[Rfam]
A member of the RNA family "Small nucleolar RNA SNORA47" from Platysternon megacephalum, 139 nucleotides long.
By type it is an H/ACA-box small nucleolar RNA.
Gene Ontology terms of the family: RNA processing and nucleolus.
Rfam 15.1 lists 733 matches to the family in 635 species.
RNA sequence: UGGAGGACUGAGAAGGUAAGGCAGUUAUAUCCUGUACUGGUUCUUACUGGUUAUAGCCUCCAAGAUUAAAAUGGUGCAAAAGCAACCCAUGUUCCUCUCCUAACUUUAGGGGAAACAAUACUGCCUUUGCAUAUACGGC
Numbered sequence: 001u002g003g004a005g006g007a008c009u010g011a012g013a014a015g016g017u018a019a020g021g022c023a024g025u026u027a028u029a030u031c032c033u034g035u036a037c038u039g040g041u042u043c044u045u046a047c048u049g050g051u052u053a054u055a056g057c058c059u060c061c062a063a064g065a066u067u068a069a070a071a072u073g074g075u076g077c078a079a080a081a082g083c084a085a086c087c088c089a090u091g092u093u094c095c096u097c098u099c100c101u102a103a104c105u106u107u108a109g110g111g112g113a114a115a116c117a118a119u120a121c122u123g124c125c126u127u128u129g130c131a132u133a134u135a136c137g138g139c
Stems, first nucleotide, its partner, number of pairs: 002061005015048004019042002022039004082130002090123002098117001101114001104111001
The literature on the family includes a 2001 paper in EMBO J by Huttenhofer et al., "RNomics: an experimental approach that identifies 201 candidates for novel, small, non-messenger RNAs in mouse".
Pairs were carried over by alignment from the consensus structure, which was predicted with WAR.
The match comes from Rfam's covariance-model search (79 bits).